This 58-nucleotide RNA from Corallincola holothuriorum belongs to the Rfam family "Pseudomonas sRNA P26".
The organism belongs to Corallincola, within Bacteria.
It is annotated as a non-coding RNA gene.
About the family: This small RNA (sRNA) was computationally identified in the genome of the opportunistic pathogen Pseudomonas aeruginosa and its expression verified by northern blot analysis. P26 is conserved across many Gammaproteobacteria species and appears to be consistently located between the DNA directed RNA polymerase (beta subunit) and 50S ribosomal protein L7/L12 genes.
For this family Rfam cites "Identification of 17 Pseudomonas aeruginosa sRNAs and prediction of sRNA-encoding genes in 10 diverse pathogens using the bioinformatic tool sRNAPredict2" (Livny et al., Nucleic Acids Res, 2006).
RNA sequence: UAGCUUACAAAGCUAGCCUGAAAAGGCUAUGGGCUGGUGACCUCUGGGUCACCAGCCU
Numbered sequence: 001u002a003g004c005u006u007a008c009a010a011a012g013c014u015a016g017c018c019u020g021a022a023a024a025g026g027c028u029a030u031g032g033g034c035u036g037g038u039g040a041c042c043u044c045u046g047g048g049u050c051a052c053c054a055g056c057c058u
Stems, first nucleotide, its partner, number of pairs: 014029005032057010
Dot-bracket structure: .............(((((......)))))..((((((((((......)))))))))).